[Rfam]
The record is a 69-nucleotide sequence, which matches "tRNA" in Rfam. Rfam's curators put it in the seed alignment.

RNA sequence: GAGUUGUUAGUCUAAACAAGACAGUUGAUUUCGGCUCAACAAAUUAUGGUUAAACCCCAUAAUAACUCU
Dot-bracket structure: (((((((..((((.....)))).(((((.......)))))....(((((.......)))))))))))).